[Rfam]
A member of the RNA family "L17 ribosomal protein downstream element" from Ureibacillus terrenus, 70 nucleotides long. Taxonomically the source falls in Ureibacillus (Bacteria, Bacillati, Bacilli, Caryophanales).

RNA sequence: UGAGCGUUAUGAUGAUCGAAUGGUUCAUUCGGAUCGUCUAGCUCUCCGCACCUCAUUCGUCCGGUUACGG
Numbered sequence: 001u002g003a004g005c006g007u008u009a010u011g012a013u014g015a016u017c018g019a020a021u022g023g024u025u026c027a028u029u030c031g032g033a034u035c036g037u038c039u040a041g042c043u044c045u046c047c048g049c050a051c052c053u054c055a056u057u058c059g060u061c062c063g064g065u066u067a068c069g070g
Stems, first nucleotide, its partner, number of pairs: 002044004011038003017031006046070003050066001052064002